[Rfam]
RNA sequence: UUUUCCGGAGACCCGGGGCAAGUACCCCUCCAAACCCUCCCCGCCCCACCGAUCCCCCACAGCAACCCUGGUCACCCGGAAGAGUGGUGAUCCCCAACUCGGCUGGAUUUCGGCCCGGUUCGCUGGCAUAUGCUCGCCCCGACCGACCACAACCGCAGACAUGCGACGGCCCCCGCCGGGACUGCAAUCCCAGUGCGAGGGCCUGACCACCGAGGAAGAAUCGAGCUUCCCG
Numbered sequence: 001u002u003u004u005c006c007g008g009a010g011a012c013c014c015g016g017g018g019c020a021a022g023u024a025c026c027c028c029u030c031c032a033a034a035c036c037c038u039c040c041c042c043g044c045c046c047c048a049c050c051g052a053u054c055c056c057c058c059a060c061a062g063c064a065a066c067c068c069u070g071g072u073c074a075c076c077c078g079g080a081a082g083a084g085u086g087g088u089g090a091u092c093c094c095c096a097a098c099u100c101g102g103c104u105g106g107a108u109u110u111c112g113g114c115c116c117g118g119u120u121c122g123c124u125g126g127c128a129u130a131u132g133c134u135c136g137c138c139c140c141g142a143c144c145g146a147c148c149a150c151a152a153c154c155g156c157a158g159a160c161a162u163g164c165g166a167c168g169g170c171c172c173c174c175g176c177c178g179g180g181a182c183u184g185c186a187a188u189c190c191c192a193g194u195g196c197g198a199g200g201g202c203c204u205g206a207c208c209a210c211c212g213a214g215g216a217a218g219a220a221u222c223g224a225g226c227u228u229c230c231c232g
Stems, first nucleotide, its partner, number of pairs: 072087004077082001102138001104136003168203005174197003178191004214230005